The record is a 102-nucleotide sequence from Priestia megaterium, which matches "Purine riboswitch aptamer" in Rfam. The match comes from Rfam's covariance-model search (81 bits).
RNA sequence: UAUAAAUGUUUCGUAUACCUUCAUAUAUCCUCGAUAAUAUGGUUCGAGAGUCUCUACCGGGUCACCUUAAACGAUCUGACUAUGAAGGCAGAACAGUCUAUU
Numbered sequence: 001u002a003u004a005a006a007u008g009u010u011u012c013g014u015a016u017a018c019c020u021u022c023a024u025a026u027a028u029c030c031u032c033g034a035u036a037a038u039a040u041g042g043u044u045c046g047a048g049a050g051u052c053u054c055u056a057c058c059g060g061g062u063c064a065c066c067u068u069a070a071a072c073g074a075u076c077u078g079a080c081u082a083u084g085a086a087g088g089c090a091g092a093a094c095a096g097u098c099u100a101u102u
Stems, first nucleotide, its partner, number of pairs: 018088008030048005058078006